[Rfam]
RNA sequence: AUCUCUGGAAAGAUGGAAAUCACCGUAGGAGCAAGUGCAUCAUUUACGAUGCUGCAACUCUCAGGUAAAAAUACAGAGAU
Number, nucleotide and partner (000 for none) at each position: 001a080002u079003c078004u077005c076006u075007g074008g000009a000010a000011a000012g000013a000014u000015g000016g000017a000018a000019a000020u000021c000022a066023c065024c064025g062026u000027a000028g000029g060030a059031g058032c000033a000034a000035g055036u054037g000038c000039a000040u000041c000042a000043u000044u000045u000046a000047c000048g000049a000050u000051g000052c000053u000054g036055c035056a000057a000058c031059u030060c029061u000062c025063a000064g024065g023066u022067a000068a000069a000070a000071a000072u000073a000074c007075a006076g005077a004078g003079a002080u001
Background:
A member of the RNA family "Glycine riboswitch aptamer" from Sporanaerobacter sp. PP17-6a, 80 nucleotides long. The organism belongs to Sporanaerobacter, within Bacteria.